[Rfam]
RNA sequence: UGAAGAGUAAGAAUGCGUGCGUUAAGUGUUGCUUGGACGGGGAGUUGCCAGGCAAACGAAAAGUCUUUGACUUGCGGUUCGUGUUCUGCAUCCCGCUUCA
Numbered sequence: 001u002g003a004a005g006a007g008u009a010a011g012a013a014u015g016c017g018u019g020c021g022u023u024a025a026g027u028g029u030u031g032c033u034u035g036g037a038c039g040g041g042g043a044g045u046u047g048c049c050a051g052g053c054a055a056a057c058g059a060a061a062a063g064u065c066u067u068u069g070a071c072u073u074g075c076g077g078u079u080c081g082u083g084u085u086c087u088g089c090a091u092c093c094c095g096c097u098u099c100a
Stems, first nucleotide, its partner, number of pairs: 001100005010087008019078001020076003026057002029055008040093003044089001061073004
Dot-bracket structure: (((((....((((((((.((((...((.((((((((...[[[.[...))))))))))...((((.....))))))).).)))))))).].]]]..)))))
The record is a 100-nucleotide RNA from Monoglobus pectinilyticus, which matches "THF (Tetrahydrofolate) riboswitch aptamer" in Rfam. Rfam 15.1 lists 747 matches to the family in 747 species. About the family: Tetrahydrofolate (THF) riboswitch was first reported for Ames et al. as an RNA motif in 5' untranslated (5'-UTR)regions of folate transport and biosynthesis genes in Firmicutes genomes. On this family, see Ames et al., Chem Biol 2010: "A eubacterial riboswitch class that senses the coenzyme tetrahydrofolate". A search with the family's covariance model found it, with a score of 92 bits. Pairs were carried over by alignment from the consensus structure, which is taken from published work.